This 249-nucleotide sequence from Phialocephala subalpina belongs to the Rfam family "U2 spliceosomal RNA". The family's consensus secondary structure is taken from published work. Its Rfam clan is "U2 clan". On this family, see Berglund et al., RNA 2001: "Crystal structure of a model branchpoint-U2 snRNA duplex containing bulged adenosines". Rfam classes the family as a spliceosomal small nuclear RNA. The match comes from Rfam's covariance-model search (126 bits). The organism belongs to Phialocephala fortinii species complex, within Eukaryota.
RNA sequence: UUAGCUCUCUUUGCCUUUUGGCUUAGAUCAAGUGUAGUAUCUGUUCUUGUGAGUUUUCCCUCCUCCGCCUUCGAUCUUUCAAUCUUUGCUAACAACCUUCGCAGUUCAGUUUAAUCUCUGAAAUGGCGCUAAGGCGUCAAUCAAUGAUUAUACUUAUUUUUGUCCCUCGGAGGAUGGUCUCUGGGCUUGCUCAUACCGUCUUCCACCGUGUCUCUGGUAUUACACUGCCUCCAGACGAUGCGAACCUUU
Numbered sequence: 001u002u003a004g005c006u007c008u009c010u011u012u013g014c015c016u017u018u019u020g021g022c023u024u025a026g027a028u029c030a031a032g033u034g035u036a037g038u039a040u041c042u043g044u045u046c047u048u049g050u051g052a053g054u055u056u057u058c059c060c061u062c063c064u065c066c067g068c069c070u071u072c073g074a075u076c077u078u079u080c081a082a083u084c085u086u087u088g089c090u091a092a093c094a095a096c097c098u099u100c101g102c103a104g105u106u107c108a109g110u111u112u113a114a115u116c117u118c119u120g121a122a123a124u125g126g127c128g129c130u131a132a133g134g135c136g137u138c139a140a141u142c143a144a145u146g147a148u149u150a151u152a153c154u155u156a157u158u159u160u161u162g163u164c165c166c167u168c169g170g171a172g173g174a175u176g177g178u179c180u181c182u183g184g185g186c187u188u189g190c191u192c193a194u195a196c197c198g199u200c201u202u203c204c205a206c207c208g209u210g211u212c213u214c215u216g217g218u219a220u221u222a223c224a225c226u227g228c229c230u231c232c233a234g235a236c237g238a239u240g241c242g243a244a245c246c247u248u249u
Stems, first nucleotide, its partner, number of pairs: 008027003013022003048123001050121001052119002124139006169204008182193004207242006213235005
Dot-bracket structure: .......(((..(((....)))..)))....................(.(.((................................................................)).).)((((((....)))))).............................((((((((.....((((....))))...))))))))..(((((((((((.............))))).)))))).......